A member of the RNA family "mir-17 microRNA precursor family" from Anguilla anguilla, 80 nucleotides long. From the family's description: This family represents the microRNA (miRNA) precursor mir-17, family, which includes mir-20, mir-91, and mir-103. miRNAs are transcribed as ~70nt precursors (modelled here) and subsequently processed by the Dicer enzyme to give a ~22nt product. In this case the mature sequence comes from the 3' arm of the precursor. The extents of the hairpin precursors are not generally known and are estimated based on hairpin prediction. The base pairs follow the family's consensus structure, which was predicted with RNAalifold.
RNA sequence: UCUGCGUCUCCAAAGUGCUGUUUGUGCAGGUAGCCGAAUCAUGGAUCCUACUGCAAAACCAGCACUUCACGACACACAGA
Number, nucleotide and partner (000 for none) at each position: 001u000002c000003u000004g077005c000006g075007u074008c000009u072010c071011c000012a000013a067014a066015g065016u064017g063018c062019u061020g060021u000022u058023u057024g000025u055026g054027c053028a000029g052030g051031u050032a049033g048034c000035c000036g000037a000038a000039u000040c000041a000042u000043g000044g000045a000046u000047c000048c033049u032050a031051c030052u029053g027054c026055a025056a000057a023058a022059c000060c020061a019062g018063c017064a016065c015066u014067u013068c000069a000070c000071g010072a009073c000074a007075c006076a000077c004078a000079g000080a000